This 38-nucleotide RNA from Clostridium frigidicarnis belongs to the Rfam family "Selenocysteine insertion sequence 4". It is annotated as a cis-regulatory element. The family's consensus secondary structure was predicted with PFOLD. The source organism's lineage runs through Bacteria, Bacillati, Bacillota, Clostridia and Clostridium.
RNA sequence: GGAACUUGUACUCGUUGCGGAGCAACGUUAGUUAAAGA
Numbered sequence: 001g002g003a004a005c006u007u008g009u010a011c012u013c014g015u016u017g018c019g020g021a022g023c024a025a026c027g028u029u030a031g032u033u034a035a036a037g038a
Stems, first nucleotide, its partner, number of pairs: 005031002013027006